[Rfam]
RNA sequence: UGGUAAUUACUUAUUUUGUAGCCACUUUGAGUUACGAUAAUUAUUACGUUAAUUUACGAGAUUAUAGUAACUCCAUACUAAAUGGUUUACUAUAACGUUAUGGUAAAUAUCUCCAUGUGUUUCAGUAACCCAACUAUUGUAAAUAUGUAUUGAUAUUAUCGUAAAUUAGUACAUAAAAUUAUCUUAAAUGGAGGUGGCUACAGAAUAACUUAUUUUAUAGCUG
Numbered sequence: 001u002g003g004u005a006a007u008u009a010c011u012u013a014u015u016u017u018g019u020a021g022c023c024a025c026u027u028u029g030a031g032u033u034a035c036g037a038u039a040a041u042u043a044u045u046a047c048g049u050u051a052a053u054u055u056a057c058g059a060g061a062u063u064a065u066a067g068u069a070a071c072u073c074c075a076u077a078c079u080a081a082a083u084g085g086u087u088u089a090c091u092a093u094a095a096c097g098u099u100a101u102g103g104u105a106a107a108u109a110u111c112u113c114c115a116u117g118u119g120u121u122u123c124a125g126u127a128a129c130c131c132a133a134c135u136a137u138u139g140u141a142a143a144u145a146u147g148u149a150u151u152g153a154u155a156u157u158a159u160c161g162u163a164a165a166u167u168a169g170u171a172c173a174u175a176a177a178a179u180u181a182u183c184u185u186a187a188a189u190g191g192a193g194g195u196g197g198c199u200a201c202a203g204a205a206u207a208a209c210u211u212a213u214u215u216u217a218u219a220g221c222u223g
Stems, first nucleotide, its partner, number of pairs: 003216001005214003009210001011208018032187003036183007045173001048170010060160003064156003069150001076141003082137006088127004094121005102112002
This 223-nucleotide sequence from Sorghum bicolor belongs to the Rfam family "MIR6217 microRNA precursor family". Taxonomically the source falls in Sorghum (Eukaryota, Streptophyta, Liliopsida, Poales). Rfam links the family to the GO terms RISC complex and miRNA-mediated post-transcriptional gene silencing. A search with the family's covariance model found it, with a score of 154 bits.